Record summary: This 111-nucleotide RNA sequence from Sodalis-like endosymbiont of Proechinophthirus fluctus belongs to the Rfam family "Alpha operon ribosome binding site". The bacterial alpha operon ribosome binding site is surrounded by this complex pseudoknotted structure. Translation of the mRNA produces 4 ribosomal protein products, one of which (S4) acts as a translational repressor by binding to the nested pseudoknot region. The mechanism of repression is thought to involve a conformational switch in the pseudoknot region and ribosome entrapment. Taxonomically the source falls in Sodalis (Bacteria, Pseudomonadota, Gammaproteobacteria, Bruguierivoracaceae).

RNA sequence: CGCUGCAACAUUGUUUUGAGUAUCUUGAAAACUAGAUUUUCAGAACGGUGUUGCAGUUAAAAACUCUAGGAGUGCAUAGUGGCCCGCAUAGCAGGUAUUAACAUUCCUGAU
Numbered sequence: 001c002g003c004u005g006c007a008a009c010a011u012u013g014u015u016u017u018g019a020g021u022a023u024c025u026u027g028a029a030a031a032c033u034a035g036a037u038u039u040u041c042a043g044a045a046c047g048g049u050g051u052u053g054c055a056g057u058u059a060a061a062a063a064c065u066c067u068a069g070g071a072g073u074g075c076a077u078a079g080u081g082g083c084c085c086g087c088a089u090a091g092c093a094g095g096u097a098u099u100a101a102c103a104u105u106c107c108u109g110a111u
Base pairs, nucleotide, nucleotide: 004055005054006053007052008051009050010049011048012047013046024095025094026093032086035083040110041109042108